[Rfam]
This 142-nucleotide RNA sequence from Ventosimonas gracilis belongs to the Rfam family "radC RNA".

Nucleotides: 142
Stems, first nucleotide, its partner, number of pairs: 011038004019033005042063006050088004064082007109142003116136004120131004
Number, partner (000 for none) and nucleotide at each position: 001000a002000u003000g004000c005000u006000g007000c008000g009000u010000c011038c012037a013036u014035g015000c016000g017000u018000u019033g020032c021031u022030g023029a024000u025000g026000u027000a028000u029023u030022c031021a032020g033019c034000g035014c036013a037012u038011g039000c040000c041000a042063g043062c044061a045060g046059u047058c048000a049000a050088g051087g052086g053085u054000u055000u056000c057000a058047g059046a060045c061044u062043g063042c064082c065081g066080c067079g068078a069077g070076a071000g072000u073000c074000u075000c076070u077069c078068u079067c080066g081065u082064g083000c084000u085053g086052c087051c088050c089000g090000a091000c092000u093000u094000c095000a096000c097000c098000c099000a100000c101000c102000c103000a104000c105000c106000u107000g108000c109142g110141g111140g112000a113000a114000c115000g116136c117135c118134u119133u120131u121130c122129c123128c124000g125000c126000a127000c128123g129122g130121g131120a132000c133119a134118a135117g136116g137000a138000u139000a140111u141110u142109c

Source information
Pairs were carried over by alignment from the consensus structure, which is taken from published work. The match comes from Rfam's covariance-model search (58 bits). NCBI's taxonomy places the organism under Bacteria, Pseudomonadota, Gammaproteobacteria, Ventosimonadaceae, Ventosimonas. The family's RNA type in Rfam is cis-regulatory element.